[Rfam]
RNA sequence: GUGUCGGGCCGUGACUGGCGCGUCGGAGUGGGAUCAACCACGAGGGAGCGGCUCGUCUUCGGACUUCAUGCCGUGCGCCUGGGCCCUUUCC
Numbered sequence: 001g002u003g004u005c006g007g008g009c010c011g012u013g014a015c016u017g018g019c020g021c022g023u024c025g026g027a028g029u030g031g032g033a034u035c036a037a038c039c040a041c042g043a044g045g046g047a048g049c050g051g052c053u054c055g056u057c058u059u060c061g062g063a064c065u066u067c068a069u070g071c072c073g074u075g076c077g078c079c080u081g082g083g084c085c086c087u088u089u090c091c
Stems, first nucleotide, its partner, number of pairs: 003057001005055008015045002017079005028041004070084003